[Rfam]
Nucleotides: 102
Base pairs, nucleotide, nucleotide: 005094006093007092008091009090010089011088012086016081017080018079019078022033023032024031025030035056038053040051041050062075063074064073065072066071
Number, partner (000 for none) and nucleotide at each position: 001000c002000a003000u004000a005094u006093g007092c008091a009090u010089g011088c012086u013000u014000a015000a016081g017080c018079a019078u020000g021000u022033a023032u024031g025030c026000a027000u028000a029000u030025g031024c032023a033022u034000u035056c036000a037000u038053g039000u040051a041050u042000g043000c044000a045000u046000a047000u048000g049000c050041a051040u052000u053038c054000a055000u056035g057000u058000a059000u060000a061000c062075a063074u064073g065072c066071a067000u068000u069000c070000a071066u072065g073064c074063a075062u076000u077000c078019a079018u080017g081016c082000a083000u084000g085000c086012a087000u088011g089010c090009a091008u092007g093006c094005a095000u096000a097000u098000g099000c100000a101000u102000a